Shown here is a 61-nucleotide sequence from Propionispora vibrioides, a member of the family "Fluoride riboswitch aptamer (crcB RNA motif)". The source organism's lineage runs through Bacteria, Bacillota, Selenomonadales, Sporomusaceae and Propionispora.
[Rfam]
RNA sequence: AUAGGAAAAGGCGAUGGAGUUCGCCAUAAAUCCAACCGAGGAUAAUGACUCCUACCAUAUG
Numbered sequence: 001a002u003a004g005g006a007a008a009a010g011g012c013g014a015u016g017g018a019g020u021u022c023g024c025c026a027u028a029a030a031u032c033c034a035a036c037c038g039a040g041g042a043u044a045a046u047g048a049c050u051c052c053u054a055c056c057a058u059a060u061g
Stems, first nucleotide, its partner, number of pairs: 010025004016052006